[Rfam]
Nucleotides: 077
Base pairs, nucleotide, nucleotide: 003073004072005071006070008068009067011065012064013063014062015061016060017059018058020056023053027049028048029047030046031045032044
Number, partner (000 for none) and nucleotide at each position: 001000u002000g003073u004072g005071a006070c007000a008068g009067a010000c011065a012064a013063g014062c015061u016060u017059u018058u019000g020056g021000c022000c023053c024000a025000g026000a027049u028048u029047a030046u031045a032044c033000c034000u035000g036000a037000c038000a039000u040000u041000c042000c043000c044032g045031u046030a047029u048028a049027a050000g051000a052000c053023g054000a055000g056020c057000a058018a059017a060016a061015a062014g063013c064012u065011u066000g067009u068008u069000g070006g071005u072004c073003a074000g075000a076000g077000g